[Rfam]
Source information
SAM riboswitch aptamer (S box leader): a 108-nucleotide RNA sequence from Sporosarcina sp. HYO08. The SAM riboswitch is found upstream of a number of genes which code for proteins involved in methionine or cysteine biosynthesis in Gram-positive bacteria. The SAM riboswitch acts at the level of transcription termination control. The predicted structure consists of a complex stem-loop region followed by a single stem loop terminator region. An alternative and mutually exclusive form involves bases in the 3' segment of helix 1 with those in the 5' region of helix 5 to form a structure termed the anti-terminator form. This entry represents the conserved core of the complex structure involving helices 1-4. The match comes from Rfam's covariance-model search (94 bits).

RNA sequence: UUCUUAUCAAGAGAAGCAGAGGGAACUGGCCCGGUGAAGCUUCAGCAACCUCUGACACUGUCAGAAAGGUGCUACCUCCAACAAGACCUAGGUCUUGAGAGAUAAGGU
Numbered sequence: 001u002u003c004u005u006a007u008c009a010a011g012a013g014a015a016g017c018a019g020a021g022g023g024a025a026c027u028g029g030c031c032c033g034g035u036g037a038a039g040c041u042u043c044a045g046c047a048a049c050c051u052c053u054g055a056c057a058c059u060g061u062c063a064g065a066a067a068g069g070u071g072c073u074a075c076c077u078c079c080a081a082c083a084a085g086a087c088c089u090a091g092g093u094c095u096u097g098a099g100a101g102a103u104a105a106g107g108u
Base pairs, nucleotide, nucleotide: 002107003106004105005104006103007102008101013043014042015041016040017039021032022031023030027080028079029078044073045072046071047070049069050068051065052064053063054062077100082097083096084095085094086093087092